[Rfam]
RNA sequence: UGAGUCGGCCGGACGGCUGCGUCACCGCCUCGGCGGUGUCGAGGAAAGUCCGGGCUCCACAGGGCAGGGUGGUGGCCAACAGCCACCCGGGGUGACCCGCGGGACAGUGCCACAGAAAGCAGACCGCCUCGACGACCUCGGUCGUCGCGGUAAGGGUGAAACGGUGGUGCAAGAGACCACCAGCGAUCCGGGUGACCGGAUCGGCUCGGUAAACCCCACCCGGAGCAAGUCCAGACAGUGUGCGUCCGAGGGCGGCCCGCCCGAGCACACGGGUAGGACGCUGGAGGUCGUCGGCAACGGCGACCCGAGAUGGAUGGCCGUCACCCCGGUCCGGGCAACCGGCCCGGGGGACAGAACCCGGCUUACAGGCCGACUCAUCCC
Dot-bracket structure: ((((((((((((((((((.((.((((((....)))))).))....[[[.[[[[[((((...[[[[.((((((((((.....)))))(((((....)))).)((...(((((............(((((.(((((((....))))))).)))..)).......((((((.......)))))).(((((((((....)))))))).)..)))..)))))))))))))...((((.....((((((......((((.]]]]))))..)))))).....))))......((((((((....))))))))..........)))))))..................................]]]]]]]].).))))))))))....
Shown here is a 381-nucleotide sequence from Janibacter indicus, a member of the family "Bacterial RNase P class A". Its family is annotated with ribonuclease P activity, tRNA processing and dimeric ribonuclease P complex in the Gene Ontology. Lineage of the source: Bacteria > Actinomycetota > Actinomycetes > Micrococcales > Janibacter.